A member of the RNA family "c-di-AMP riboswitch aptamer (ydaO/yuaA leader)" from Streptomyces beijiangensis, 158 nucleotides long. Rfam's curators write: This family represents a conserved RNA structure found upstream of the ydaO and yuaA genes in Bacillus subtilis and related genes in other bacteria. A search with the family's covariance model found it, with a score of 39 bits.
[Rfam]
Nucleotides: 158
Base pairs, nucleotide, nucleotide: 001022002021024138025137026136027135028134029133034074035073036072037071075121076120077119083095084094085093086092098115099114100113101112
Number, partner (000 for none) and nucleotide at each position: 001022u002021c003000g004000a005000c006000a007000g008000g009000a010000g011000u012000g013000c014000a015000u016000c017000g018000g019000c020000a021002g022001g023000a024138g025137u026136g027135g028134a029133g030000g031000a032000c033000c034074c035073a036072g037071g038000c039000a040000g041000u042000a043000c044000g045000g046000g047000c048000c049000c050000g051000a052000c053000c054000c055000g056000a057000g058000u059000g060000u061000g062000g063000g064000a065000u066000c067000g068000g069000c070000c071037c072036u073035u074034g075121g076120g077119g078000u079000g080000a081000a082000g083095c084094c085093g086092c087000g088000a089000g090000c091000a092086g093085c094084g095083g096000c097000c098115g099114g100113g101112c102000a103000u104000c105000u106000u107000c108000g109000c110000c111000a112101g113100u114099c115098c116000g117000a118000a119077u120076c121075c122000g123000a124000c125000a126000g127000g128000u129000c130000a131000u132000c133029c134028u135027u136026c137025a138024c139000a140000g141000g142000c143000g144000g145000u146000u147000g148000a149000c150000g151000a152000a153000g154000g155000g156000u157000u158000g